[Rfam]
RNA sequence: UUGCCUUAAACUAAUGAGUAAGGAAAACAAAGCGAGCGGUGAGAGCCGGUCGCCGCAUCCAUGAAUUGGUGCAAGAAUUUAUGGAGGGGUGAUGGGCUCUUCAUGUGUUGAUGUUGCUUACUUUGCAGAACUCACAUGAGUGGGCCUCCCAAUCCC
Number, nucleotide and partner (000 for none) at each position: 001u000002u000003g000004c023005c022006u021007u020008a019009a000010a000011c000012u000013a000014a000015u000016g000017a000018g000019u008020a007021a006022g005023g004024a000025a000026a000027a000028c000029a000030a000031a000032g053033c052034g051035a050036g000037c048038g047039g046040u000041g000042a000043g000044a000045g000046c039047c038048g037049g000050u035051c034052g033053c032054c000055g072056c071057a070058u069059c068060c000061a000062u000063g000064a000065a000066u000067u000068g059069g058070u057071g056072c055073a000074a000075g000076a000077a000078u000079u000080u000081a000082u000083g000084g000085a000086g156087g155088g154089g153090u152091g000092a000093u151094g150095g149096g148097c000098u144099c143100u000101u000102c138103a137104u000105g135106u134107g133108u000109u000110g000111a000112u000113g000114u128115u127116g126117c125118u000119u000120a000121c000122u000123u000124u000125g117126c116127a115128g114129a000130a000131c000132u000133c107134a106135c105136a000137u103138g102139a000140g000141u000142g000143g099144g098145c000146c000147u000148c096149c095150c094151a093152a090153u089154c088155c087156c086
RNA: U12 minor spliceosomal RNA
Organism: Cicer arietinum